The record is a 300-nucleotide RNA sequence from Cohnella sp. AR92, which matches "5' ureB small RNA" in Rfam. Its family is annotated with negative regulation of gene expression in the Gene Ontology. The base pairs follow the family's consensus structure, which was predicted with mfold.
Nucleotides: 300
Base pairs, nucleotide, nucleotide: 002299003298005297006296007295008292009291012164013163014162015161016160017159018076019075021073023071030053031052034050035049037048039046057069058068059067077154078153081150090144091143092141093140094139095138096136098135099134105130109127110126111125170282172280173279177276180275181274183272184271192226193225195223196222197221206215229263230262231261234258236256237255240252242250
Number, partner (000 for none) and nucleotide at each position: 001000c002299c003298g004000u005297u006296u007295c008292g009291a010000u011000c012164u013163g014162c015161u016160g017159g018076g019075g020000a021073g022000c023071g024000a025000u026000g027000a028000a029000g030053u031052g032000a033000a034050u035049g036000u037048g038000c039046g040000c041000g042000u043000c044000g045000a046039u047000c048037c049035c050034g051000c052031c053030g054000g055000c056000c057069g058068u059067g060000a061000c062000g063000a064000u065000u066000c067059u068058g069057c070000c071023u072000u073021c074000g075019c076018c077154g078153g079000c080000g081150a082000u083000a084000a085000u086000c087000u088000c089000g090144g091143u092141g093140c094139u095138u096136g097000c098135g099134c100000c101000g102000a103000u104000g105130a106000u107000c108000a109127g110126g111125u112000u113000c114000g115000g116000g117000u118000c119000g120000a121000c122000g123000c124000c125111g126110u127109c128000c129000a130105u131000g132000a133000u134099g135098u136096c137000g138095g139094g140093g141092u142000u143091g144090c145000c146000c147000g148000c149000u150081u151000u152000g153078c154077c155000g156000a157000u158000u159017c160016c161015g162014g163013c164012g165000a166000u167000a168000c169000g170282g171000c172280c173279g174000u175000c176000c177276u178000u179000c180275a181274a182000c183272c184271c185000g186000a187000u188000g189000u190000c191000g192226g193225c194000u195223u196222u197221g198000a199000c200000g201000a202000u203000u204000c205000c206215c207000c208000a209000a210000u211000g212000g213000u214000c215206g216000a217000u218000g219000a220000g221197c222196a223195g224000c225193g226192c227000g228000u229263u230262c231261g232000u233000g234258a235000u236256g237255a238000g239000c240252g241000u242250g243000u244000c245000c246000a247000g248000c249000a250242c251000u252240c253000c254000a255237u256236c257000g258234u259000c260000c261231c262230g263229g264000a265000c266000c267000g268000c269000c270000c271184g272183g273000c274181u275180u276177g277000c278000c279173u280172g281000c282170c283000c284000c285000a286000u287000u288000c289000c290000g291009u292008c293000c294000c295007g296006a297005a298003c299002g300000a